[Rfam]
RNA: L25-Gammaproteobacteria ribosomal protein leader
RNA sequence: CCUGUUGCUGGUUCGCCUGUAGCAGG
Numbered sequence: 001c002c003u004g005u006u007g008c009u010g011g012u013u014c015g016c017c018u019g020u021a022g023c024a025g026g
Base pairs, nucleotide, nucleotide: 001026002025003024004023005022006021007020008019010017011016